Rfam assigns this 204-nucleotide sequence from Arabidopsis lyrata to the family "MIR4240 microRNA precursor family".
The organism belongs to Arabidopsis, within Eukaryota.
Rfam's curators put it in the seed alignment.
RNA sequence: UUUUCGUAGCCGUGAAGUUAAUGGCUAGAGUGACUAGACCCGUAACAUUGCUAUGAAAUCAUUUGAACUGAAAUUUGUUGAUCUGCGGUUUAUUUUCAAGAGAUCAAAACGAAGAUAAGUGGUGGCACAAGUUUACUUUAGCGAAUUUAUCGCUAUGUUAUCGGGUCUAGCACUCUAUCCACUGAUUUCACGACCACGAGCCUC
Numbered sequence: 001u002u003u004u005c006g007u008a009g010c011c012g013u014g015a016a017g018u019u020a021a022u023g024g025c026u027a028g029a030g031u032g033a034c035u036a037g038a039c040c041c042g043u044a045a046c047a048u049u050g051c052u053a054u055g056a057a058a059u060c061a062u063u064u065g066a067a068c069u070g071a072a073a074u075u076u077g078u079u080g081a082u083c084u085g086c087g088g089u090u091u092a093u094u095u096u097c098a099a100g101a102g103a104u105c106a107a108a109a110c111g112a113a114g115a116u117a118a119g120u121g122g123u124g125g126c127a128c129a130a131g132u133u134u135a136c137u138u139u140a141g142c143g144a145a146u147u148u149a150u151c152g153c154u155a156u157g158u159u160a161u162c163g164g165g166u167c168u169a170g171c172a173c174u175c176u177a178u179c180c181a182c183u184g185a186u187u188u189c190a191c192g193a194c195c196a197c198g199a200g201c202c203u204c
Stems, first nucleotide, its partner, number of pairs: 003200005009194001011192010022181003026177007034170009043160006050153002053150002056148004063144003068141005077132003088120010